[Rfam]
RNA sequence: GGUACCAGAAGAGGAGCGCUGCCCAGGCAGCCCGAGCGAGGAGACCGGUCUCCGUAGAACUCGGGCGAGGGGGAGCAGCGCCGAGAUGUGCCAGACCACCCGGUGGUCGGCAUGUCGGCUGCGGGGGCUGAAUCCCCCGGGCUGUCAUCGGUGGGGGACAUCUCUCCCUAGGUGGAGCGCUUCUGGCCGG
Numbered sequence: 001g002g003u004a005c006c007a008g009a010a011g012a013g014g015a016g017c018g019c020u021g022c023c024c025a026g027g028c029a030g031c032c033c034g035a036g037c038g039a040g041g042a043g044a045c046c047g048g049u050c051u052c053c054g055u056a057g058a059a060c061u062c063g064g065g066c067g068a069g070g071g072g073g074a075g076c077a078g079c080g081c082c083g084a085g086a087u088g089u090g091c092c093a094g095a096c097c098a099c100c101c102g103g104u105g106g107u108c109g110g111c112a113u114g115u116c117g118g119c120u121g122c123g124g125g126g127g128c129u130g131a132a133u134c135c136c137c138c139g140g141g142c143u144g145u146c147a148u149c150g151g152u153g154g155g156g157g158a159c160a161u162c163u164c165u166c167c168c169u170a171g172g173u174g175g176a177g178c179g180c181u182u183c184u185g186g187c188c189g190g
Stems, first nucleotide, its partner, number of pairs: 006185006016081007024073001030066007085116008094108004117143004122139006145175005151169001
This 190-nucleotide RNA from Aeromonas simiae belongs to the Rfam family "Lysine riboswitch aptamer". It scores 80 bits against the family's covariance model. Riboswitches are metabolite binding domains within certain messenger RNAs that serve as precision sensors for their corresponding targets.